[Rfam]
Rfam assigns this 131-nucleotide RNA from Prolemur simus to the family "Small nucleolar RNA SNORA63". Rfam 15.1 lists 1,279 matches to the family in 601 species. The family's consensus secondary structure was predicted with PFOLD. For this family Rfam cites "Three small nucleolar RNAs that are involved in ribosomal RNA precursor processing" (Mishra and Eliceiri, Proc Natl Acad Sci U S A, 1997). Rfam classes the family as an H/ACA-box small nucleolar RNA. NCBI's taxonomy places the organism under Eukaryota, Craniata, Boreoeutheria, Lemuridae, Prolemur. From the family's description: E3 belongs to the H/ACA class of snoRNAs and is involved in the processing of eukaryotic pre-rRNA and has regions of complementarity to 18S rRNA. E3 is encoded in introns in the gene for protein synthesis initiation factor 4AII.
RNA sequence: GAGCAGGAUUCAGACUACAAUAUAGCUGUAAAGUGCUGUGUUGUUGUUCCCCUUCCUCAAAAUAAAGUGUUUCUUUACUAUACCUGUUUGCUAUACUCUCGUAGCCGCCAGGGACGCUUGGUCUCAUACAU
Numbered sequence: 001g002a003g004c005a006g007g008a009u010u011c012a013g014a015c016u017a018c019a020a021u022a023u024a025g026c027u028g029u030a031a032a033g034u035g036c037u038g039u040g041u042u043g044u045u046g047u048u049c050c051c052c053u054u055c056c057u058c059a060a061a062a063u064a065a066a067g068u069g070u071u072u073c074u075u076u077a078c079u080a081u082a083c084c085u086g087u088u089u090g091c092u093a094u095a096c097u098c099u100c101g102u103a104g105c106c107g108c109c110a111g112g113g114a115c116g117c118u119u120g121g122u123c124u125c126a127u128a129c130a131u
Stems, first nucleotide, its partner, number of pairs: 003056001005054003017044010083112004088107001090105002